[Rfam]
RNA sequence: ACAUUUUUAGGCUGUGACUUGUGACAAAAUGUUUAUUUACAACAUAUUGCACAUGUCCCGGCCUAUAAUUGU
Numbered sequence: 001a002c003a004u005u006u007u008u009a010g011g012c013u014g015u016g017a018c019u020u021g022u023g024a025c026a027a028a029a030u031g032u033u034u035a036u037u038u039a040c041a042a043c044a045u046a047u048u049g050c051a052c053a054u055g056u057c058c059c060g061g062c063c064u065a066u067a068a069u070u071g072u
Stems, first nucleotide, its partner, number of pairs: 001072003005068002010063002013060002016057002020053002023050001025049003029045003
The family of this 72-nucleotide RNA sequence from Drosophila albomicans is "mir-310 microRNA precursor family". The source organism's lineage runs through Eukaryota, Opisthokonta, Hexapoda, Insecta and Drosophila. The family is grouped with related families in Rfam's "mir-92 microRNA precursor clan". The family's consensus secondary structure was predicted with RNAalifold.